[Rfam]
Source information:
Rfam assigns this 205-nucleotide sequence to the family "raiA RNA". The sequence is in the family's curated seed alignment.
RNA sequence: UUUUUCCGGGUCUGUGGUUGAAAGUCGAUGCCAGCCGCAGGCGAAACGACCCACGUAAACCGGCAAAAAUACCGGUGAGCAUGGUGCGGUUUAGAGGUAAGUCCUGCCCGGGGUUAAACCGGAGACGGGGAGUAGUGAAGGCUUAAACCGUAGCGAGACCCGCAGCAGGCGAGUGUGGGGGAAAAGACCAGGUCAGCCGGAUAAC
Numbered sequence: 001u002u003u004u005u006c007c008g009g010g011u012c013u014g015u016g017g018u019u020g021a022a023a024g025u026c027g028a029u030g031c032c033a034g035c036c037g038c039a040g041g042c043g044a045a046a047c048g049a050c051c052c053a054c055g056u057a058a059a060c061c062g063g064c065a066a067a068a069a070u071a072c073c074g075g076u077g078a079g080c081a082u083g084g085u086g087c088g089g090u091u092u093a094g095a096g097g098u099a100a101g102u103c104c105u106g107c108c109c110g111g112g113g114u115u116a117a118a119c120c121g122g123a124g125a126c127g128g129g130g131a132g133u134a135g136u137g138a139a140g141g142c143u144u145a146a147a148c149c150g151u152a153g154c155g156a157g158a159c160c161c162g163c164a165g166c167a168g169g170c171g172a173g174u175g176u177g178g179g180g181g182a183a184a185a186g187a188c189c190a191g192g193u194c195a196g197c198c199g200g201a202u203a204a205c
Stems, first nucleotide, its partner, number of pairs: 002204002005201005012196003015190005028176003031041001033091007050084002058076001060074001062072001082183001103169005108122004126162004135154002140149002